Background: The family of this 235-nucleotide RNA from Thiohalocapsa marina is "Group II catalytic intron D1-D4-6". The family has 174 seed sequences and 1,617 matches in Rfam 15.1. From the family's description: Group II introns are found in rRNA, tRNA and mRNA of organelles in fungi, plants and protists, and also in mRNA in bacteria. Lineage of the source: Bacteria > Pseudomonadota > Gammaproteobacteria > Chromatiales > Thiohalocapsa. Pairs were carried over by alignment from the consensus structure.
RNA sequence: UAAGUCCCGCCGAUGGAGUUGCUCGUACACCAUUGUAGUGCCCCGGAGCGGCGUUUGGGUAACCAAGGGUCGUGAGUUCCGAGGGUGCAAAACCGCAGGCCGCAGCGCAAGCGAACCUAGAUGUAGCCUCGUCACUUACUCGAAGAAGCCGACCCUGUGGUCAGAAGGGGAAGGCCGCCGCCGGUGGGAAGAGACAACGAGAGCGUCCCAUCGAUUCUUCCGGGGUAGCAGGGGU
Numbered sequence: 001u002a003a004g005u006c007c008c009g010c011c012g013a014u015g016g017a018g019u020u021g022c023u024c025g026u027a028c029a030c031c032a033u034u035g036u037a038g039u040g041c042c043c044c045g046g047a048g049c050g051g052c053g054u055u056u057g058g059g060u061a062a063c064c065a066a067g068g069g070u071c072g073u074g075a076g077u078u079c080c081g082a083g084g085g086u087g088c089a090a091a092a093c094c095g096c097a098g099g100c101c102g103c104a105g106c107g108c109a110a111g112c113g114a115a116c117c118u119a120g121a122u123g124u125a126g127c128c129u130c131g132u133c134a135c136u137u138a139c140u141c142g143a144a145g146a147a148g149c150c151g152a153c154c155c156u157g158u159g160g161u162c163a164g165a166a167g168g169g170g171a172a173g174g175c176c177g178c179c180g181c182c183g184g185u186g187g188g189a190a191g192a193g194a195c196a197a198c199g200a201g202a203g204c205g206u207c208c209c210a211u212c213g214a215u216u217c218u219u220c221c222g223g224g225g226u227a228g229c230a231g232g233g234g235u
Stems, first nucleotide, its partner, number of pairs: 012034005020027002023200002036090001038088002042085002044081002046078002048073005054067005123229001124227001126226006142220006148175003153169004182213005188207002191204001